Notes
A member of the RNA family "Iron response element I" from Sciurus vulgaris, 36 nucleotides long. Pairs were carried over by alignment from the consensus structure, which is taken from published work. Taxonomically the source falls in Sciurus (Eukaryota, Opisthokonta, Tetrapoda, Sciuridae).
[Rfam]
RNA sequence: CGAUUUCCUGCUUCAACAAUGCUUGGACGGAACCCG
Numbered sequence: 001c002g003a004u005u006u007c008c009u010g011c012u013u014c015a016a017c018a019a020u021g022c023u024u025g026g027a028c029g030g031a032a033c034c035c036g
Stems, first nucleotide, its partner, number of pairs: 001036002005032004010028001012027005017021001